[Rfam]
RNA sequence: GCCUCGCCAACGCUGCGUUUCUCUGCACCCACACAGACACUGCUUGCAGUCGUCCUACCCUGCAGAUGAGAAAUUCGGAGUAAUCUUCACCCCUUGUGCUUUUGCACUACUGCCCGUAAGGGCCUGGCGUGACUCACGUCUGUACUCGGCAUCAGAAAGCUCAGGGCCCAAGAAGCUGCGUGGGAAACUGCGUGGUGGAUAUGGUGUCCCUAUGGGAGUCGGUGCGAAGAUUGUGUGCUCUGCGGAGUGACACUGUAGUACAAUACGCAGCGUGCUUGACUUUGAGUAGCUUCGGCGAAAGGGGGAGGGUAUCAUUCGAUUCUGAUUACUCUGGCGAGGC
Dot-bracket structure: ((((..(((..(((((((...((((..........((((((......))).)))........)))).........[[[[[....((((.......................((((....))))..(((((.....))))).((((..................(((..........................................)))..........))))))))...................................)))))))((((((.............................)))))).......]]]]].......)))..))))
Nuclear RNase P: a 340-nucleotide RNA sequence from Didymella heteroderae. The match comes from Rfam's covariance-model search (34 bits). A reference for the family is Frank and Pace (1998), "Ribonuclease P: unity and diversity in a tRNA processing ribozyme", Annu Rev Biochem. Rfam classes the family as a ribozyme. The source organism's lineage runs through Eukaryota, Dikarya, Ascomycota, Pleosporineae and Didymella. The family is grouped with related families in Rfam's "RNaseP clan".